[Rfam]
RNA sequence: AAGUCAUUUCAAAGAGGGCUUGGAUGGCUAUGAAACCAGAGCUCUUAAGAUUAUAAUAAGAUUGAAAUUUUCCAUAGGAUGCUGUAGUCAUGCAAUAGUGCUGUUUUCUUGAGGAGAUAGAAGA
Numbered sequence: 001a002a003g004u005c006a007u008u009u010c011a012a013a014g015a016g017g018g019c020u021u022g023g024a025u026g027g028c029u030a031u032g033a034a035a036c037c038a039g040a041g042c043u044c045u046u047a048a049g050a051u052u053a054u055a056a057u058a059a060g061a062u063u064g065a066a067a068u069u070u071u072c073c074a075u076a077g078g079a080u081g082c083u084g085u086a087g088u089c090a091u092g093c094a095a096u097a098g099u100g101c102u103g104u105u106u107u108c109u110u111g112a113g114g115a116g117a118u119a120g121a122a123g124a
Base pairs, nucleotide, nucleotide: 004056006054007053014046015045016044017043018042019041020040021039026037027036069117070116071115072114073113076110077109078108079107084104085103086102087101089100090099091098
Shown here is a 124-nucleotide RNA sequence from Colobus angolensis, a member of the family "Small nucleolar RNA SNORA25". ACA25 is a member of the H/ACA class of snoRNA that guide the sites of modification of uridines to pseudouridines. The family has 30 seed sequences and 1,129 matches in Rfam 15.1. The organism belongs to Colobus angolensis, within Eukaryota. Gene Ontology terms of the family: RNA processing and nucleolus. A search with the family's covariance model found it, with a score of 89 bits.